L31-Firmicutes ribosomal protein leader: a 30-nucleotide RNA sequence.
RNA sequence: CUAUGACUUAACUAGUCAUGGCGGAAGGAG
Numbered sequence: 001c002u003a004u005g006a007c008u009u010a011a012c013u014a015g016u017c018a019u020g021g022c023g024g025a026a027g028g029a030g
Stems, first nucleotide, its partner, number of pairs: 001021008
The base pairs follow the family's consensus structure, which is taken from published work. By type it is a cis-regulatory leader. The literature on the family includes a 2020 paper in BMC Microbiol by Eckert and Weinberg, "Discovery of 20 novel ribosomal leader candidates in bacteria and archaea". Its Rfam clan is "Ribosomal Protein L31 Leader clan".